The record is a 52-nucleotide RNA sequence from Aliishimia ponticola, which matches "ffh sRNA" in Rfam.
[Rfam]
RNA sequence: UUGCGCAGGGAUCGCCCCCCACCAGCGAGUAUCGCCCGUGGGGGCGCUUGAC
Dot-bracket structure: ...............(((((((..((((...))))..)))))))........
Notes:
For this family Rfam cites "Identification of candidate structured RNAs in the marine organism 'Candidatus Pelagibacter ubique'" (Meyer et al., BMC Genomics, 2009). A search with the family's covariance model found it, with a score of 53 bits.